[Rfam]
This 66-nucleotide sequence from Sporosarcina sp. Marseille-Q4063 belongs to the Rfam family "RAGATH-18 RNA". Pairs were carried over by alignment from the consensus structure, which is taken from published work. The family's RNA type in Rfam is small RNA. Taxonomically the source falls in Sporosarcina (Bacteria, Bacillota, Bacilli, Caryophanaceae). A search with the family's covariance model found it, with a score of 54 bits.
RNA sequence: CCUGUGGAGUGCUAAACCAACCGUAGUAGCAAGUAAGUGGCAAGUCGGGGUACGAGGAAGCAGGAA
Dot-bracket structure: (((((...(((((.......(((.....((.........))....))))))))......)))))..